[Rfam]
RNA sequence: GGCUGGCCCAAGUGCAGUGGUGUUUACAACUAAUUGAUCACAACCAGUUACAGAUUUCUUUGUUCCUUCUCUACUUCCACUGCUACAACUUGGCUAAUCUUUA
Numbered sequence: 001g002g003c004u005g006g007c008c009c010a011a012g013u014g015c016a017g018u019g020g021u022g023u024u025u026a027c028a029a030c031u032a033a034u035u036g037a038u039c040a041c042a043a044c045c046a047g048u049u050a051c052a053g054a055u056u057u058c059u060u061u062g063u064u065c066c067u068u069c070u071c072u073a074c075u076u077c078c079a080c081u082g083c084u085a086c087a088a089c090u091u092g093g094c095u096a097a098u099c100u101u102u103a
Stems, first nucleotide, its partner, number of pairs: 001099002004096005010091002014086001016081005028064003032060002
Rfam assigns this 103-nucleotide RNA from Propithecus coquereli to the family "Y RNA". It is annotated as a non-coding RNA gene. The match comes from Rfam's covariance-model search (63 bits). The family's consensus secondary structure is taken from published work.